[Rfam]
Shown here is a 107-nucleotide RNA sequence from Blautia argi, a member of the family "TPP riboswitch aptamer (THI element)".
RNA sequence: UAGUACAGUCAGGGGAGUCCGUAGGCGGGCUGAGAGGAAGUUCUCAAACUUCGACCCUUUAAACCUGUAUGGGUAAUGCCAACGUAGGGAGAAAGAAAUGAGCUGUU
Dot-bracket structure: .....(..((((((..(((((....)))))......(((((......)))))..)))).....((((..(((......)))...))))..))..)............

About the family: Vitamin B(1) in its active form thiamin pyrophosphate (TPP) is an essential coenzyme that is synthesised by coupling of pyrimidine and thiazole moieties in bacteria. It scores 67 bits against the family's covariance model. The source organism's lineage runs through Bacteria, Bacillati, Clostridia, Lachnospiraceae and Blautia.